Rfam assigns this 130-nucleotide RNA sequence from Xenopus laevis to the family "Small Cajal body specific RNA 3". The match comes from Rfam's covariance-model search (65 bits). A reference for the family is Darzacq et al. (2002), "Cajal body-specific small nuclear RNAs: a novel class of 2'-O-methylation and pseudouridylation guide RNAs", EMBO J. Pairs were carried over by alignment from the consensus structure, which was predicted with RNAalifold. Gene Ontology terms of the family: nucleolus, RNA processing and Cajal body.

[Rfam]
RNA sequence: GCUGGAAGCUUCAAUAUUUUGUGUGCAGUUCUGCAGUCUGCCCACAGUAGCAAGCUUCCUAUAGAAAUAUGGGGAUCUCUGUCUGGCUUUGCUUAAGUUUGAUGAGUCAGAUCGUUCCUCUCCAUACAUG
Number, nucleotide and partner (000 for none) at each position: 001g000002c000003u000004g059005g058006a057007a000008g055009c054010u053011u052012c000013a000014a000015u000016a000017u000018u000019u000020u046021g045022u044023g043024u000025g041026c040027a000028g000029u000030u000031c000032u000033g000034c000035a000036g000037u000038c000039u000040g026041c025042c000043c023044a022045c021046a020047g000048u000049a000050g000051c000052a011053a010054g009055c008056u000057u006058c005059c004060u000061a000062u000063a000064g000065a000066a000067a000068u000069a000070u000071g123072g122073g121074g120075a119076u000077c000078u000079c114080u000081g112082u111083c110084u000085g108086g107087c106088u105089u104090u000091g000092c000093u000094u000095a000096a000097g000098u000099u000100u000101g000102a000103u000104g089105a088106g087107u086108c085109a000110g083111a082112u081113c000114g079115u000116u000117c000118c000119u075120c074121u073122c072123c071124a000125u000126a000127c000128a000129u000130g000